[Rfam]
RNA sequence: AUGUUUCUUUAGACCAGGUCCCCUUUCCCCAUGGGAGUUUGGUGUGCAAUGGUUGCAAACAGCAGCCUCCUUGGUAGUGUUUGCAGCCUAUUGCCUAUAUGGGCUGUCCUAAGGGACCUUGGAGACAAUU
Number, nucleotide and partner (000 for none) at each position: 001a000002u000003g000004u000005u000006u000007c000008u000009u000010u000011a000012g000013a043014c042015c041016a040017g000018g000019u000020c037021c000022c035023c034024u000025u000026u000027c000028c000029c000030c000031a000032u000033g000034g023035g022036a000037g020038u000039u000040u016041g015042g014043u013044g000045u000046g000047c000048a000049a000050u000051g000052g000053u000054u000055g000056c000057a000058a000059a000060c000061a000062g000063c000064a000065g000066c000067c000068u000069c000070c000071u000072u000073g118074g117075u116076a000077g000078u000079g000080u000081u000082u000083g000084c106085a105086g104087c103088c102089u101090a000091u000092u000093g000094c000095c000096u000097a000098u000099a000100u000101g089102g088103g087104c086105u085106g084107u000108c000109c000110u000111a000112a000113g000114g000115g000116a075117c074118c073119u000120u000121g000122g000123a000124g000125a000126c000127a000128a000129u000130u000